[Rfam]
RNA: Glycine riboswitch aptamer
Organism: Methylomusa anaerophila
RNA sequence: GAAUGGAACUCUGGAGAGCCCCUGGCAACAGGGCGCCGAAGGGGCAAACCGUCCUGUUACGGGACCGGUGAAACUCUCAGGCAAAAGGACAGAACUAAUAUA
Dot-bracket structure: ......(..((((......((((......)))).(((((..(((...((((..............))))....))))).))).......))))..)......